[Rfam]
The family of this 133-nucleotide sequence from Erwinia billingiae is "Salmonella enterica Typhi npcRNA 44". It is annotated as a non-coding RNA gene. A search with the family's covariance model found it, with a score of 64 bits.
RNA sequence: CUUUAACAAUCCGGAACAAGCUGAAAAUUGAAACGACAUGUCGUUUUCAUUCUCCGUAAUAAGAAUGAAAUCAUACGAUAUGUUCGAGUCUCUCAAAUGCUUACAACAGCAUGUGUCUUUCGGGACGCUUGUG
Numbered sequence: 001c002u003u004u005a006a007c008a009a010u011c012c013g014g015a016a017c018a019a020g021c022u023g024a025a026a027a028u029u030g031a032a033a034c035g036a037c038a039u040g041u042c043g044u045u046u047u048c049a050u051u052c053u054c055c056g057u058a059a060u061a062a063g064a065a066u067g068a069a070a071u072c073a074u075a076c077g078a079u080a081u082g083u084u085c086g087a088g089u090c091u092c093u094c095a096a097a098u099g100c101u102u103a104c105a106a107c108a109g110c111a112u113g114u115g116u117c118u119u120u121c122g123g124g125a126c127g128c129u130u131g132u133g
Base pairs, nucleotide, nucleotide: 020104023102024101027098028097029096034086035085036084038083039082040081041080109132110131111130113128114127115126116125